The record is a 117-nucleotide RNA from Thioflavicoccus mobilis, which matches "ALIL pseudoknot" in Rfam. A search with the family's covariance model found it, with a score of 93 bits. The literature on the family includes a 2008 paper in J Biol Chem by Mazauric et al., "Apical loop-internal loop RNA pseudoknots: a new type of stimulator of -1 translational frameshifting in bacteria". The family's consensus secondary structure is taken from published work. NCBI's taxonomy places the organism under Bacteria, Pseudomonadati, Gammaproteobacteria, Chromatiales, Thioflavicoccus mobilis. The family's RNA type in Rfam is cis-regulatory element. Rfam links the family to the GO term positive regulation of translational frameshifting.
RNA sequence: GGCCGAUUUCGCCCAGGCGGAGCUCGACCGCCGAGGCAAAUGAUGGUUGCGUUCAUCGACGCCCAUCGGGCCAAGCAGGGGGUCGAGCCGAUCGGCGCGCAGUUGCCGAUCGCCCCG
Numbered sequence: 001g002g003c004c005g006a007u008u009u010c011g012c013c014c015a016g017g018c019g020g021a022g023c024u025c026g027a028c029c030g031c032c033g034a035g036g037c038a039a040a041u042g043a044u045g046g047u048u049g050c051g052u053u054c055a056u057c058g059a060c061g062c063c064c065a066u067c068g069g070g071c072c073a074a075g076c077a078g079g080g081g082g083u084c085g086a087g088c089c090g091a092u093c094g095g096c097g098c099g100c101a102g103u104u105g106c107c108g109a110u111c112g113c114c115c116c117g
Stems, first nucleotide, its partner, number of pairs: 016032005079116004089112002092109006